[Rfam]
Shown here is a 131-nucleotide sequence from Electrophorus electricus, a member of the family "Small Cajal body specific RNA 8". The family's consensus secondary structure is taken from published work. The organism belongs to Electrophorus, within Eukaryota. A reference for the family is Darzacq et al. (2002), "Cajal body-specific small nuclear RNAs: a novel class of 2'-O-methylation and pseudouridylation guide RNAs", EMBO J. The match comes from Rfam's covariance-model search (111 bits).
RNA sequence: UGGGAGACAGAUACAUGGGCAGUUCCUAGCUAUGCUCUGCUCAACACUAGUUCUCCCUAGAUCAUACGUGCUUUCUGAUGACCGGUGUGAAUUGAGGCAAAUCACAACGGACAGAUACGAAGCAGACAAUC
Numbered sequence: 001u002g003g004g005a006g007a008c009a010g011a012u013a014c015a016u017g018g019g020c021a022g023u024u025c026c027u028a029g030c031u032a033u034g035c036u037c038u039g040c041u042c043a044a045c046a047c048u049a050g051u052u053c054u055c056c057c058u059a060g061a062u063c064a065u066a067c068g069u070g071c072u073u074u075c076u077g078a079u080g081a082c083c084g085g086u087g088u089g090a091a092u093u094g095a096g097g098c099a100a101a102u103c104a105c106a107a108c109g110g111a112c113a114g115a116u117a118c119g120a121a122g123c124a125g126a127c128a129a130u131c
Stems, first nucleotide, its partner, number of pairs: 002057006016043003022037001025034001067125001069124006082110003087105004